[Rfam]
Nucleotides: 113
Base pairs, nucleotide, nucleotide: 003049004048005047006046007045008044009043010042016039017038018037019036020035021034052108053107054106055105056104057103058102059101060100061099062098
Number, partner (000 for none) and nucleotide at each position: 001000u002000a003049g004048c005047c006046c007045u008044a009043c010042g011000g012000a013000a014000u015000g016039c017038u018037c019036a020035g021034g022000u023000c024000c025000g026000c027000c028000g029000c030000a031000u032000c033000u034021c035020c036019u037018g038017g039016g040000u041000c042010c043009g044008u045007g046006g047005g048004g049003u050000u051000c052108g053107g054106u055105c056104g057103g058102c059101c060100g061099a062098a063000g064000c065000g066000c067000g068000g069000u070000u071000u072000g073000a074000g075000u076000g077000g078000c079000c080000u081000c082000c083000u084000c085000g086000u087000u088000a089000g090000c091000g092000c093000c094000g095000c096000g097000u098062u099061u100060c101059g102058g103057u104056c105055g106054a107053c108052c109000a110000c111000c112000a113000a
EcpR1: a 113-nucleotide RNA from Methyloligella halotolerans. About the family: Perviously named SmelC291, SmrC10, or Sra33. According to its overproduction phenotype it was renamed Elongated Cell Phenotype RNA1. Induced by stress,EcpR1 negatively regulates cell cycle master regulatory genes dnaA and gcrA at post-transcriptional level by base pairing between its strongly conserved GC-rich loop and the target mRNAs. It's regulation is hfq-independent but requires RNase E to regulate dnaA. A reference for the family is Wilms et al. (2012), "Deep sequencing uncovers numerous small RNAs on all four replicons of the plant pathogen Agrobacterium tumefaciens", RNA Biol. By type it is a small RNA. Gene Ontology terms of the family: negative regulation of cell cycle, mRNA binding and regulation of translation in response to stress.